Shown here is a 173-nucleotide RNA, a member of the family "Clostridiales-1 RNA". Rfam classes the family as a small RNA. The sequence is in the family's curated seed alignment.
[Rfam]
RNA sequence: UGAUACCAGGGGACAAAGUUUGGAAGACCGACGCAAGCUUGCUUGCAGGAGGACUUGCAAAAUUGGGACCCGCCAAAAACAUGAGUAAGAAGCCAUUUUUGUUAAAAAAUGAGCGGAUUACGAAUGUUUUCUAGGAUUGCGGGAGCACACAGUGCGGAGCAAUCGACGAAUCA
Numbered sequence: 001u002g003a004u005a006c007c008a009g010g011g012g013a014c015a016a017a018g019u020u021u022g023g024a025a026g027a028c029c030g031a032c033g034c035a036a037g038c039u040u041g042c043u044u045g046c047a048g049g050a051g052g053a054c055u056u057g058c059a060a061a062a063u064u065g066g067g068a069c070c071c072g073c074c075a076a077a078a079a080c081a082u083g084a085g086u087a088a089g090a091a092g093c094c095a096u097u098u099u100u101g102u103u104a105a106a107a108a109a110u111g112a113g114c115g116g117a118u119u120a121c122g123a124a125u126g127u128u129u130u131c132u133a134g135g136a137u138u139g140c141g142g143g144a145g146c147a148c149a150c151a152g153u154g155c156g157g158a159g160c161a162a163u164c165g166a167c168g169a170a171u172c173a
Base pairs, nucleotide, nucleotide: 001173002172003171004170006168011069014066017063019061020060021059022058024056025055026054028052029051032048033046034045035044036043037042075130076129077128079127080126081125082124085121086120087119088118092114093113094111095110096109097108098107099106100105135164136163137162138161139160140159145155146154147153148152